[Rfam]
RNA sequence: GCUGCGGACCGGGCCCCUCUGGCGGUCGCCCCUUCAGGCGAUCGUGAUGUCGGACCGCAUCG
Numbered sequence: 001g002c003u004g005c006g007g008a009c010c011g012g013g014c015c016c017c018u019c020u021g022g023c024g025g026u027c028g029c030c031c032c033u034u035c036a037g038g039c040g041a042u043c044g045u046g047a048u049g050u051c052g053g054a055c056c057g058c059a060u061c062g
Stems, first nucleotide, its partner, number of pairs: 006056002009053004022045008
This 62-nucleotide sequence from Allosphingosinicella deserti belongs to the Rfam family "terC RNA". By type it is a cis-regulatory element. The family's consensus secondary structure is taken from published work. The family has 129 seed sequences and 1,112 matches in Rfam 15.1. Lineage of the source: Bacteria > Pseudomonadati > Pseudomonadota > Sphingomonadales > Allosphingosinicella.